[Rfam]
RNA sequence: GCCGAGCCCGGUUGCGUGGGCUUGUGAUCCAAGUGGAGGCAUUAGGGAGGUGGGACGUUGAUCCUGCCCAGAUGACCGAGUCUUGUGUGACUUUCUCUGGCCUGCCCGUUCCAAGCCAAGAGCUGAGCCGUGUGGUCCGGGCGAAGGCUCGAGUCACAAGGCUCCUAAAGUGGGGGGCAAUGCGUGAGGCUGGUUUCACAGAGCAGCGAUAACCUCCUGCUCCUGGCAGUGGAAGGAUAACAGGCCAGUGUCACCUAAACUCGUAUGGUCUGAUGGGUUGAUCUAACUGGACCGUCGCCUUU
Numbered sequence: 001g002c003c004g005a006g007c008c009c010g011g012u013u014g015c016g017u018g019g020g021c022u023u024g025u026g027a028u029c030c031a032a033g034u035g036g037a038g039g040c041a042u043u044a045g046g047g048a049g050g051u052g053g054g055a056c057g058u059u060g061a062u063c064c065u066g067c068c069c070a071g072a073u074g075a076c077c078g079a080g081u082c083u084u085g086u087g088u089g090a091c092u093u094u095c096u097c098u099g100g101c102c103u104g105c106c107c108g109u110u111c112c113a114a115g116c117c118a119a120g121a122g123c124u125g126a127g128c129c130g131u132g133u134g135g136u137c138c139g140g141g142c143g144a145a146g147g148c149u150c151g152a153g154u155c156a157c158a159a160g161g162c163u164c165c166u167a168a169a170g171u172g173g174g175g176g177g178c179a180a181u182g183c184g185u186g187a188g189g190c191u192g193g194u195u196u197c198a199c200a201g202a203g204c205a206g207c208g209a210u211a212a213c214c215u216c217c218u219g220c221u222c223c224u225g226g227c228a229g230u231g232g233a234a235g236g237a238u239a240a241c242a243g244g245c246c247a248g249u250g251u252c253a254c255c256u257a258a259a260c261u262c263g264u265a266u267g268g269u270c271u272g273a274u275g276g277g278u279u280g281a282u283c284u285a286a287c288u289g290g291a292c293c294g295u296c297g298c299c300u301u302u
Stems, first nucleotide, its partner, number of pairs: 001040003004023007028037003044301004049296005056289002058286003061282003068276003074270004078262004083257001085255001087254004092250001097248008106236002109234005115227004120222004125164005131158006138151005165170001172217005183208003190201003
RNA: Plant signal recognition particle RNA